[Rfam]
RNA sequence: GUGUGUUAAUGAUGGUCUGGGUCUAAACUGUUGAGGGACCAGACCUGAUGCAUUACACUC
Numbered sequence: 001g002u003g004u005g006u007u008a009a010u011g012a013u014g015g016u017c018u019g020g021g022u023c024u025a026a027a028c029u030g031u032u033g034a035g036g037g038a039c040c041a042g043a044c045c046u047g048a049u050g051c052a053u054u055a056c057a058c059u060c
Base pairs, nucleotide, nucleotide: 001060003058004057005056014045015044016043017042018041019040020039022037023036028035029034
Dot-bracket structure: (.(((........(((((((.((....((....)))).)))))))..........))).)
The family of this 60-nucleotide RNA sequence from Hucho hucho is "Selenocysteine insertion sequence 1". By type it is a cis-regulatory element. The base pairs follow the family's consensus structure, which is taken from published work. The incorporation of selenocysteine into a protein sequence is directed by an in-frame UGA codon (usually a stop codon) within the coding region of the mRNA. Selenoprotein mRNAs contain a conserved secondary structure in the 3' UTR that is required for the distinction of UGA stop from UGA selenocysteine. The selenocysteine insertion sequence (SECIS) is around 60 nt in length and adopts a hairpin structure which is sufficiently well-defined and conserved to act as a computational screen for selenoprotein genes. Its family is annotated with selenocysteine incorporation in the Gene Ontology.